[Rfam]
RNA sequence: CUGUCUCCUGCUUCAACUGUGUGUGGACGGAACAG
Numbered sequence: 001c002u003g004u005c006u007c008c009u010g011c012u013u014c015a016a017c018u019g020u021g022u023g024u025g026g027a028c029g030g031a032a033c034a035g
Stems, first nucleotide, its partner, number of pairs: 001035004006031003010028001012027004017021001
Dot-bracket structure: ((((.(((.(.((((.(...)..))))))))))))
RNA: Iron response element I